[Rfam]
RNA sequence: AGCCGUGCGAUGGGCACAGAGCGAACUAUUCUUUCGCCUUUUACUAAAGAAUACCGUGUGUUCGUCGCCUAAAGCGGCAUACGCCUAUUUUUGGAGGGCCGGUUUAUCGAGAACGGGCC
Numbered sequence: 001a002g003c004c005g006u007g008c009g010a011u012g013g014g015c016a017c018a019g020a021g022c023g024a025a026c027u028a029u030u031c032u033u034u035c036g037c038c039u040u041u042u043a044c045u046a047a048a049g050a051a052u053a054c055c056g057u058g059u060g061u062u063c064g065u066c067g068c069c070u071a072a073a074g075c076g077g078c079a080u081a082c083g084c085c086u087a088u089u090u091u092u093g094g095a096g097g098g099c100c101g102g103u104u105u106a107u108c109g110a111g112a113a114c115g116g117g118c119c
Stems, first nucleotide, its partner, number of pairs: 003077004008067011027053008097119004102114003
Dot-bracket structure: ..((((.(((((((((((........((((((((...........))))))))...)))))))))))......))))...................((((.(((.......))).))))
RNA: U5 spliceosomal RNA
Organism: Gossypium mustelinum